[Rfam]
A member of the RNA family "Small nucleolar RNA SNORD116" from Sorex araneus, 93 nucleotides long. The family's RNA type in Rfam is C/D-box small nucleolar RNA. For this family Rfam cites "Identification of brain-specific and imprinted small nucleolar RNA genes exhibiting an unusual genomic organization" (Cavaille et al., Proc Natl Acad Sci U S A, 2000).
RNA sequence: GGAUCGAUGAUGAUUCUCCCAAAAGCAUUCCUUGGAAAGCUGAACAAAAUGAGUGAGAACUCAAUACCGCCGUUCUCCUCGACGCUGAGGUCC
Numbered sequence: 001g002g003a004u005c006g007a008u009g010a011u012g013a014u015u016c017u018c019c020c021a022a023a024a025g026c027a028u029u030c031c032u033u034g035g036a037a038a039g040c041u042g043a044a045c046a047a048a049a050u051g052a053g054u055g056a057g058a059a060c061u062c063a064a065u066a067c068c069g070c071c072g073u074u075c076u077c078c079u080c081g082a083c084g085c086u087g088a089g090g091u092c093c
Stems, first nucleotide, its partner, number of pairs: 001093005026055005032047003